[Rfam]
RNA sequence: UUUUGGAUAUGAUGUUAUCUAUCAGAGGCUGUUUCUGAGGAUGAGCCAUAGCUUCUCCCAGUGCUGCAAAAAAACUGAUUUGCCGUUCUGAUCAAAAG
Dot-bracket structure: ..((.((...................................(((.......)))..........(((((........)))))........)).))..